[Rfam]
RNA sequence: GGUCCGAUGCCACGUCGCCGGUAGCUAUAAAUGGCGGUGACCGGCGAUGCUAUGAUUGGACCGAGAGUGAUUCCAUGUUUCGUAUGCUGAUAGGAAUCUGUGGAUCUGAUACCGUUGGUCUAUGGAGCCGAUUUAUACGAUUACAUUU
Numbered sequence: 001g002g003u004c005c006g007a008u009g010c011c012a013c014g015u016c017g018c019c020g021g022u023a024g025c026u027a028u029a030a031a032u033g034g035c036g037g038u039g040a041c042c043g044g045c046g047a048u049g050c051u052a053u054g055a056u057u058g059g060a061c062c063g064a065g066a067g068u069g070a071u072u073c074c075a076u077g078u079u080u081c082g083u084a085u086g087c088u089g090a091u092a093g094g095a096a097u098c099u100g101u102g103g104a105u106c107u108g109a110u111a112c113c114g115u116u117g118g119u120c121u122a123u124g125g126a127g128c129c130g131a132u133u134u135a136u137a138c139g140a141u142u143a144c145a146u147u148u
Stems, first nucleotide, its partner, number of pairs: 002061007009053001013049006020042003024035003080140005093129002098125003102121005
This 148-nucleotide RNA sequence from Juglans regia belongs to the Rfam family "Small nucleolar RNA snoR2/U65". NCBI's taxonomy places the organism under Eukaryota, Magnoliopsida, eudicotyledons, Pentapetalae, Juglans. By type it is an H/ACA-box small nucleolar RNA. For this family Rfam cites "Localization and processing from a polycistronic precursor of novel snoRNAs in maize" (Shaw et al., J Cell Sci, 1998).